Annotation: The record is a 195-nucleotide RNA from Prunus armeniaca, which matches "MIR159 microRNA precursor family" in Rfam. The match comes from Rfam's covariance-model search (94 bits). Taxonomically the source falls in Prunus (Eukaryota, Embryophyta, rosids, Amygdaloideae). Rfam links the family to the GO terms RISC complex and miRNA-mediated post-transcriptional gene silencing. On this family, see Jones-Rhoades and Bartel, Mol Cell 2004: "Computational identification of plant microRNAs and their targets, including a stress-induced miRNA".

RNA sequence: GGGCUUCAAUUGGAGCUCUUCUUCACUCUAAUUCUGAAAAGAGGUGAUGGUAGACCAAGACUGCUAAUUCAUGAAUACCCUCAAGUAUGCACGUUAGCGAUGAGUGUGUGCAUGUUAAGGGUUUGCAUGAAGUAGGAGACGGGGUUACUUUGAUCUUUUCGGUUUGGAGUGAAGAGAACUCCUAAUGGAUCUUCC
Numbered sequence: 001g002g003g004c005u006u007c008a009a010u011u012g013g014a015g016c017u018c019u020u021c022u023u024c025a026c027u028c029u030a031a032u033u034c035u036g037a038a039a040a041g042a043g044g045u046g047a048u049g050g051u052a053g054a055c056c057a058a059g060a061c062u063g064c065u066a067a068u069u070c071a072u073g074a075a076u077a078c079c080c081u082c083a084a085g086u087a088u089g090c091a092c093g094u095u096a097g098c099g100a101u102g103a104g105u106g107u108g109u110g111c112a113u114g115u116u117a118a119g120g121g122u123u124u125g126c127a128u129g130a131a132g133u134a135g136g137a138g139a140c141g142g143g144g145u146u147a148c149u150u151u152g153a154u155c156u157u158u159u160c161g162g163u164u165u166g167g168a169g170u171g172a173a174g175a176g177a178a179c180u181c182c183u184a185a186u187g188g189a190u191c192u193u194c195c
Stems, first nucleotide, its partner, number of pairs: 013181003017177002020175002024171007037158001061138002064135003070129004078121001